[Rfam]
RNA sequence: GGGGACCUUCGGGGCCCUAUACCAACCAUAGGCGGGCCGUUCCGAAACGGACCCCGCCGCAAGCAGACGGAAGACAGGAA
Numbered sequence: 001g002g003g004g005a006c007c008u009u010c011g012g013g014g015c016c017c018u019a020u021a022c023c024a025a026c027c028a029u030a031g032g033c034g035g036g037c038c039g040u041u042c043c044g045a046a047a048c049g050g051a052c053c054c055c056g057c058c059g060c061a062a063g064c065a066g067a068c069g070g071a072a073g074a075c076a077g078g079a080a
Base pairs, nucleotide, nucleotide: 001018002017003016004015006014007013008012031058032057033056034055035054036053
Shown here is an 80-nucleotide RNA from Defluviimonas sp. 20V17, a member of the family "L2-Alphaproteobacteria ribosomal protein leader". The family's consensus secondary structure is taken from published work. For this family Rfam cites "Discovery of 20 novel ribosomal leader candidates in bacteria and archaea" (Eckert and Weinberg, BMC Microbiol, 2020).